[Rfam]
Nucleotides: 175
Base pairs, nucleotide, nucleotide: 004031005030033155034154035153036152037151038150043084085140086139087138093117094116095115120134121133122132123131
Number, partner (000 for none) and nucleotide at each position: 001000a002000a003000a004031c005030c006000g007000c008000a009000c010000c011000c012000g013000a014000c015000u016000a017000u018000u019000c020000g021000c022000g023000c024000g025000c026000g027000g028000c029000a030005g031004g032000a033155g034154c035153g036152g037151g038150g039000g040000a041000a042000c043084c044000a045000g046000g047000u048000a049000a050000g051000c052000c053000g054000c055000c056000g057000u058000c059000c060000g061000g062000g063000a064000u065000c066000u067000u068000u069000c070000c071000u072000c073000c074000g075000g076000a077000a078000c079000g080000g081000c082000u083000a084043g085140g086139g087138g088000u089000g090000a091000a092000g093117c094116c095115g096000c097000a098000c099000a100000u101000g102000u103000c104000c105000c106000g107000g108000a109000c110000a111000c112000g113000g114000a115095c116094g117093g118000c119000c120134g121133g122132a123131c124000a125000u126000c127000u128000c129000c130000a131123g132122u133121c134120c135000g136000a137000a138087c139086c140085c141000g142000a143000c144000a145000g146000c147000u148000c149000a150038c151037c152036u153035c154034g155033c156000a157000g158000g159000c160000g161000a162000c163000g164000g165000a166000g167000a168000g169000g170000a171000a172000a173000a174000a175000a
Overview: A member of the RNA family "c-di-AMP riboswitch aptamer (ydaO/yuaA leader)", 175 nucleotides long. Rfam's curators write: This family represents a conserved RNA structure found upstream of the ydaO and yuaA genes in Bacillus subtilis and related genes in other bacteria.